[Rfam]
RNA sequence: AUAAACAAGAAGAAGCACCCGCUUCUCACCUGAUUGACGCAUCAGCAGUUGGCAGGUUUGAAUGUAAUGAUAAAUGACACUUAUGUCGUUUUAUGCGGGUAUGCACUCAUGCCCGCAUUUUUUAUUGCAU
Numbered sequence: 001a002u003a004a005a006c007a008a009g010a011a012g013a014a015g016c017a018c019c020c021g022c023u024u025c026u027c028a029c030c031u032g033a034u035u036g037a038c039g040c041a042u043c044a045g046c047a048g049u050u051g052g053c054a055g056g057u058u059u060g061a062a063u064g065u066a067a068u069g070a071u072a073a074a075u076g077a078c079a080c081u082u083a084u085g086u087c088g089u090u091u092u093a094u095g096c097g098g099g100u101a102u103g104c105a106c107u108c109a110u111g112c113c114c115g116c117a118u119u120u121u122u123u124a125u126u127g128c129a130u
Stems, first nucleotide, its partner, number of pairs: 011026006028057003036050003039046002094117010

This 130-nucleotide RNA sequence from Bacillus sp. FJAT-27231 belongs to the Rfam family "Ribosomal protein L20 leader". Rfam classes the family as a cis-regulatory leader. On this family, see Zengel and Lindahl, Prog Nucleic Acid Res Mol Biol 1994: "Diverse mechanisms for regulating ribosomal protein synthesis in Escherichia coli". Rfam's curators write: This family is a putative r-protein leader autoregulatory structure found in B. subtilis and other low-GC Gram-positive bacteria.